[Rfam]
RNA sequence: GUUAAGCAUCAAGAGAGGGGGUGAUUCCCCGCACCAACCUGCCCCGUCUGGGUAAGGUGGUUUCCUAGCUGGAGAUGCGGCCGCACUGGCAAUGAAUCAGGCGCCC
Numbered sequence: 001g002u003u004a005a006g007c008a009u010c011a012a013g014a015g016a017g018g019g020g021g022u023g024a025u026u027c028c029c030c031g032c033a034c035c036a037a038c039c040u041g042c043c044c045c046g047u048c049u050g051g052g053u054a055a056g057g058u059g060g061u062u063u064c065c066u067a068g069c070u071g072g073a074g075a076u077g078c079g080g081c082c083g084c085a086c087u088g089g090c091a092a093u094g095a096a097u098c099a100g101g102c103g104c105c106c
Base pairs, nucleotide, nucleotide: 006078007077008076009075010074015032017030018029019028020027021026033061034060035059038057039056040055041053042052043051047100080090081089082088083087
RNA: SAM-I/IV (S-adenosyl methionine) riboswitch aptamer